Record summary
The record is a 31-nucleotide RNA sequence from Penicillium cataractarum, which matches "Iron response element II" in Rfam. The literature on the family includes a 2001 paper in J Biol Chem by Lin et al., "Regulation of the 75-kDa subunit of mitochondrial complex I by iron". A search with the family's covariance model found it, with a score of 30 bits. Its family is annotated with response to iron ion in the Gene Ontology.
Nucleotides: 031
Base pairs, nucleotide, nucleotide: 003029004028005027006026007025009024010023011022012021013020014018
Number, partner (000 for none) and nucleotide at each position: 001000c002000c003029a004028c005027c006026a007025u008000c009024c010023g011022u012021u013020c014018c015000a016000g017000u018014g019000c020013g021012a022011a023010c024009g025007a026006u027005g028004g029003u030000u031000c
The family's RNA type in Rfam is cis-regulatory element. About the family: IRE, TFRC, SLC40A1, SDHB, SLC11A2, CDC42BPA, ACO2, ALAS2_H.SAPIENS, CDC14A, EPAS1, ALAS2, qoxD, Hao1, NDUFS1, transferrin, Aconitate.